[Rfam]
RNA: skipping-rope RNA
RNA sequence: UGCUUUUGAGGACGGAACGGGCAGCCGUGGCCCCUCGCAAGAGGUUAGGAGAUGUGGGAGUGUCGCCCCACCAAAAAUA
Numbered sequence: 001u002g003c004u005u006u007u008g009a010g011g012a013c014g015g016a017a018c019g020g021g022c023a024g025c026c027g028u029g030g031c032c033c034c035u036c037g038c039a040a041g042a043g044g045u046u047a048g049g050a051g052a053u054g055u056g057g058g059a060g061u062g063u064c065g066c067c068c069c070a071c072c073a074a075a076a077a078u079a
Base pairs, nucleotide, nucleotide: 001079002078004076005075006074007073008072012028013027014026015025020064021063022062023061031049033044034043035042036041054071055070056069057068058067